[Rfam]
RNA: MIR1520 microRNA precursor family
Organism: Glycine max
RNA sequence: UUUUGAUUGAACAAUAGAUAACUCGUAUCAUGUUAUAUGAUUGGUCCAUGACAAUCAAAACAUGAUAUGUGAUAGUCAUCGUCCAAUCAAAAUGUGACACGUGACUGUCAACAUUC
Numbered sequence: 001u002u003u004u005g006a007u008u009g010a011a012c013a014a015u016a017g018a019u020a021a022c023u024c025g026u027a028u029c030a031u032g033u034u035a036u037a038u039g040a041u042u043g044g045u046c047c048a049u050g051a052c053a054a055u056c057a058a059a060a061c062a063u064g065a066u067a068u069g070u071g072a073u074a075g076u077c078a079u080c081g082u083c084c085a086a087u088c089a090a091a092a093u094g095u096g097a098c099a100c101g102u103g104a105c106u107g108u109c110a111a112c113a114u115u116c
Base pairs, nucleotide, nucleotide: 022103025100026099029096030095031094033092034091036089040087041086042085